[Rfam]
RNA sequence: AUUUGUUUUGUUGAUGGUCAUCUAGUCUAAUCGUGCACUCUAAUCUGGGCAUAAAUACAUAUAUAUCUUGAUUAGAUUAGAUGAUCAUCAACAAACAUGUU
Numbered sequence: 001a002u003u004u005g006u007u008u009u010g011u012u013g014a015u016g017g018u019c020a021u022c023u024a025g026u027c028u029a030a031u032c033g034u035g036c037a038c039u040c041u042a043a044u045c046u047g048g049g050c051a052u053a054a055a056u057a058c059a060u061a062u063a064u065a066u067c068u069u070g071a072u073u074a075g076a077u078u079a080g081a082u083g084a085u086c087a088u089c090a091a092c093a094a095a096c097a098u099g100u101u
Stems, first nucleotide, its partner, number of pairs: 005096004010092024

A member of the RNA family "MIR827 microRNA precursor family" from Ipomoea nil, 101 nucleotides long. Rfam links the family to the GO terms miRNA-mediated post-transcriptional gene silencing and RISC complex. It scores 65 bits against the family's covariance model.